[Rfam]
RNA sequence: UCCUCCGAUGGGCAAACUUAUUGAAAAAUAAGGACGCAAAGCCACCGGCCUAAAGUGAAUGCAUAUCGCUGUAUAUGAGUGAACUAAGGUAGCGGGGUUGCCAAC
Dot-bracket structure: ...........((...((((((....))))))...))..((((.((((((....((..........................))...)))..)))))))......

The record is a 105-nucleotide RNA sequence from Affinundibacterium fentianense, which matches "c-di-GMP-I riboswitch aptamer" in Rfam. A search with the family's covariance model found it, with a score of 74 bits. From the family's description: GEMM was predicted in a large-scale screen for bacterial structured RNA regulatory elements. Genes associated with GEMM are involved in a diverse array of functions, including chemotaxis regulation, signal transduction, secretion and chitin.